[Rfam]
RNA sequence: GUGGCUCCGGUUCACGGCCAGCACCCCGCUGAGGCCGACCCGGAGCC
Numbered sequence: 001g002u003g004g005c006u007c008c009g010g011u012u013c014a015c016g017g018c019c020a021g022c023a024c025c026c027c028g029c030u031g032a033g034g035c036c037g038a039c040c041c042g043g044a045g046c047c
Stems, first nucleotide, its partner, number of pairs: 003047003007043004015037005020030002
Rfam assigns this 47-nucleotide RNA to the family "L31-Actinobacteria ribosomal protein leader".
By type it is a cis-regulatory leader.
It is one of the family's seed sequences.
The literature on the family includes a 2020 paper in BMC Microbiol by Eckert and Weinberg, "Discovery of 20 novel ribosomal leader candidates in bacteria and archaea".